[Rfam]
The family of this 72-nucleotide sequence from Anopheles gambiae is "mir-965 microRNA precursor family". Gene Ontology terms of the family: miRNA-mediated post-transcriptional gene silencing and RISC complex. A reference for the family is Huang et al. (2012), "The regulation of silkworm fibroin L chain production by miRNA-965 and miRNA-1926 in insect cells", Bioorg Khim. It is one of the family's seed sequences.
RNA sequence: UUCUGAAAGGGGAAUGCUGUACACUCUAUGUGCUAAAAAUAUCCAUAAGCGUAUAGCUUUUCCCAUUUAGCG
Numbered sequence: 001u002u003c004u005g006a007a008a009g010g011g012g013a014a015u016g017c018u019g020u021a022c023a024c025u026c027u028a029u030g031u032g033c034u035a036a037a038a039a040u041a042u043c044c045a046u047a048a049g050c051g052u053a054u055a056g057c058u059u060u061u062c063c064c065a066u067u068u069a070g071c072g
Stems, first nucleotide, its partner, number of pairs: 003070005010064003014060001017056005024049002027047004